[Rfam]
RNA sequence: GCCUGAGGACGGCCUCAGGCUCAGGACGGCCUGAGGACGGCCUCA
Number, nucleotide and partner (000 for none) at each position: 001g020002c019003c018004u017005g016006a015007g014008g013009a000010c000011g000012g000013c008014c007015u006016c005017a004018g003019g002020c001021u000022c000023a000024g000025g000026a000027c000028g000029g000030c000031c000032u045033g044034a043035g042036g041037a000038c000039g000040g000041c036042c035043u034044c033045a032